The family of this 204-nucleotide RNA sequence from Paenibacillus zeisoli is "glmS glucosamine-6-phosphate activated ribozyme aptamer". Its family is annotated with regulation of gene expression and catalytic activity in the Gene Ontology. Lineage of the source: Bacteria > Bacillati > Bacillota > Paenibacillaceae > Paenibacillus. The match comes from Rfam's covariance-model search (83 bits).
RNA sequence: UCCAUGUAAUAAGCGCCAGAGCUUCGGAUUCGCGCGGGAAGGAUAACCGUAAUCAAGCUUACGGAUAUCCACGGCAAUCGAAGCUGACGAGGUGGAGGUGUUCGAAAUGUUCGGCGGGGGCCUCCCGGUAAUUGCAUCUAACCGUAAGUCGGAUAAGCAAAAGGUAUGGGCGACCCUACUAACAAACUUACCGACCGAUGCCAC
Numbered sequence: 001u002c003c004a005u006g007u008a009a010u011a012a013g014c015g016c017c018a019g020a021g022c023u024u025c026g027g028a029u030u031c032g033c034g035c036g037g038g039a040a041g042g043a044u045a046a047c048c049g050u051a052a053u054c055a056a057g058c059u060u061a062c063g064g065a066u067a068u069c070c071a072c073g074g075c076a077a078u079c080g081a082a083g084c085u086g087a088c089g090a091g092g093u094g095g096a097g098g099u100g101u102u103c104g105a106a107a108u109g110u111u112c113g114g115c116g117g118g119g120g121c122c123u124c125c126c127g128g129u130a131a132u133u134g135c136a137u138c139u140a141a142c143c144g145u146a147a148g149u150c151g152g153a154u155a156a157g158c159a160a161a162a163g164g165u166a167u168g169g170g171c172g173a174c175c176c177u178a179c180u181a182a183c184a185a186a187c188u189u190a191c192c193g194a195c196c197g198a199u200g201c202c203a204c
Stems, first nucleotide, its partner, number of pairs: 020085008029076001094125005102114004126144004131139001149194004154190002163180004168175002